This 77-nucleotide sequence from Neogale vison belongs to the Rfam family "Small nucleolar RNA SNORD81". The family is grouped with related families in Rfam's "SNORD26 clan". The family's RNA type in Rfam is C/D-box small nucleolar RNA. Lineage of the source: Eukaryota > Opisthokonta > Eumetazoa > Gnathostomata > Neogale. The match comes from Rfam's covariance-model search (93 bits).
[Rfam]
RNA sequence: CAGAACACAUGAUGAUCUCACUCCACCUUGAACUCUCUCACUGAUCACUUGAUGAUCAUAAAAGAUCUGAGGUUCUG
Numbered sequence: 001c002a003g004a005a006c007a008c009a010u011g012a013u014g015a016u017c018u019c020a021c022u023c024c025a026c027c028u029u030g031a032a033c034u035c036u037c038u039c040a041c042u043g044a045u046c047a048c049u050u051g052a053u054g055a056u057c058a059u060a061a062a063a064g065a066u067c068u069g070a071g072g073u074u075c076u077g
Stems, first nucleotide, its partner, number of pairs: 001077006